[Rfam]
RNA sequence: GUUUCGAUGUAGGGGGACCAGUGUUGCUGGUUGAGAUCAUAUCCGUAAGAUAUAGACCCUUGGAACCUGAUCUGGCUUAAACCAGCGUAGGGAACAUAUAGAAGUGAAUG
Numbered sequence: 001g002u003u004u005c006g007a008u009g010u011a012g013g014g015g016g017a018c019c020a021g022u023g024u025u026g027c028u029g030g031u032u033g034a035g036a037u038c039a040u041a042u043c044c045g046u047a048a049g050a051u052a053u054a055g056a057c058c059c060u061u062g063g064a065a066c067c068u069g070a071u072c073u074g075g076c077u078u079a080a081a082c083c084a085g086c087g088u089a090g091g092g093a094a095c096a097u098a099u100a101g102a103a104g105u106g107a108a109u110g
Stems, first nucleotide, its partner, number of pairs: 007097004011060004017031005039053004066091004072085004